[Rfam]
RNA sequence: CUGUGGUGAUAAUUAAUUUUUUGUGUCAAAUGUGUCUGGGCCACUGUGUUCAGCUAUGUGGUCAAACAG
Dot-bracket structure: ((((.............................................................))))
This 69-nucleotide RNA from Enhydra lutris belongs to the Rfam family "Small nucleolar RNA SNORD66". On this family, see Huttenhofer et al., EMBO J 2001: "RNomics: an experimental approach that identifies 201 candidates for novel, small, non-messenger RNAs in mouse". The base pairs follow the family's consensus structure, which was predicted with RNAalifold. A search with the family's covariance model found it, with a score of 34 bits. The family's RNA type in Rfam is C/D-box small nucleolar RNA.